A member of the RNA family "Phenylalanine leader peptide" from Shewanella amazonensis, 126 nucleotides long. It is one of the family's seed sequences. The family's consensus secondary structure was predicted with CMfinder. Rfam classes the family as a cis-regulatory leader.
[Rfam]
Nucleotides: 126
Base pairs, nucleotide, nucleotide: 016094017093024091025090026089027088028087029086030085031084032083033082034081036079037078039076040075041074042073048060049059051057062070063069064068095120096119097118098117099116100115101114102113103112104111
Number, partner (000 for none) and nucleotide at each position: 001000c002000a003000u004000g005000a006000a007000a008000u009000u010000u011000a012000c013000c014000g015000u016094g017093a018000a019000u020000g021000c022000a023000g024091u025090u026089u027088u028087u029086a030085c031084u032083u033082u034081c035000u036079u037078u038000u039076u040075u041074a042073u043000u044000c045000a046000c047000u048060u049059c050000c051057c052000c053000u054000g055000a056000g057051g058000a059049g060048g061000c062070g063069g064068a065000u066000u067000u068064u069063c070062u071000g072000u073042g074041u075040a076039a077000a078037a079036a080000c081034g082033a083032a084031a085030g086029u087028g088027a089026a090025a091024a092000u093017u094016c095120a096119a097118a098117g099116c100115c101114u102113c103112c104111c105000a106000c107000c108000a109000c110000c111104g112103g113102g114101a115100g116099g117098c118097u119096u120095u121000u122000u123000u124000g125000u126000u